The record is a 91-nucleotide RNA from Streptomyces armeniacus, which matches "sodF sRNA" in Rfam. Rfam 15.1 lists 336 matches to the family in 317 species. A search with the family's covariance model found it, with a score of 74 bits. The source organism's lineage runs through Bacteria, Bacillati, Actinomycetota, Kitasatosporales and Streptomyces.

[Rfam]
RNA sequence: GCGUCUGCCUCGUGACCGUCUUCUCACCGUUCACCCGGCAGGCGGGGAAAGGGGACGGCCCCUGUGUGGACGUGACACACAGGGGCCGUUC
Numbered sequence: 001g002c003g004u005c006u007g008c009c010u011c012g013u014g015a016c017c018g019u020c021u022u023c024u025c026a027c028c029g030u031u032c033a034c035c036c037g038g039c040a041g042g043c044g045g046g047g048a049a050a051g052g053g054g055a056c057g058g059c060c061c062c063u064g065u066g067u068g069g070a071c072g073u074g075a076c077a078c079a080c081a082g083g084g085g086c087c088g089u090u091c
Stems, first nucleotide, its partner, number of pairs: 002044008012034004018028001053091016
A reference for the family is Kim et al. (2014), "Inverse regulation of Fe- and Ni-containing SOD genes by a Fur family regulator Nur through small RNA processed from 3'UTR of the sodF mRNA", Nucleic Acids Res.